[Rfam]
About this RNA
mir-3473 microRNA precursor family: an 82-nucleotide RNA sequence from Peromyscus maniculatus. It scores 73 bits against the family's covariance model. Its family is annotated with miRNA-mediated post-transcriptional gene silencing, cellular response to mechanical stimulus and RISC complex in the Gene Ontology. The organism belongs to Peromyscus maniculatus, within Eukaryota. The family has 5 seed sequences and 1,094 matches in Rfam 15.1.
RNA sequence: ACCUCUGAGCCAUCUCUCCAGCCCUCAAACUGUUUCUUUAAGAAACUGCAAGACUGGGGGGCUGGAGAGAUGGCUCAGAGGU
Numbered sequence: 001a002c003c004u005c006u007g008a009g010c011c012a013u014c015u016c017u018c019c020a021g022c023c024c025u026c027a028a029a030c031u032g033u034u035u036c037u038u039u040a041a042g043a044a045a046c047u048g049c050a051a052g053a054c055u056g057g058g059g060g061g062c063u064g065g066a067g068a069g070a071u072g073g074c075u076c077a078g079a080g081g082u
Stems, first nucleotide, its partner, number of pairs: 002081025